RNA sequence: AGAUGAGAGAUACAUCCGCCCACAGGGGACUGUGGGCGGAUCAUCAGGACGAGGCUUCCCCGGCUUCGACCUGGUCGUGCCUCGCGCACACAACCGGAGCCCACGGGCUCCGGCUUCCUCACCGAUCGGA
Numbered sequence: 001a002g003a004u005g006a007g008a009g010a011u012a013c014a015u016c017c018g019c020c021c022a023c024a025g026g027g028g029a030c031u032g033u034g035g036g037c038g039g040a041u042c043a044u045c046a047g048g049a050c051g052a053g054g055c056u057u058c059c060c061c062g063g064c065u066u067c068g069a070c071c072u073g074g075u076c077g078u079g080c081c082u083c084g085c086g087c088a089c090a091c092a093a094c095c096g097g098a099g100c101c102c103a104c105g106g107g108c109u110c111c112g113g114c115u116u117c118c119u120c121a122c123c124g125a126u127c128g129g130a
Base pairs, nucleotide, nucleotide: 004121005120006119007118009117010116016039017038018037019036020035021034022033023032024031025030043075044074045073046072047071048070050068051067052066053065054064055063077089078088079087080086094113095112096111097110098109099108100107101106122129123128

Shown here is a 130-nucleotide RNA sequence from Streptomyces coelicolor, a member of the family "Streptomyces RNA 5676". The family's RNA type in Rfam is small RNA. From the family's description: Identified by deep sequencing of transcriptome at the end of exponential growth phase. Appears longer on northern blot than sequencing transcript. This indicates processing step. It is one of the family's seed sequences.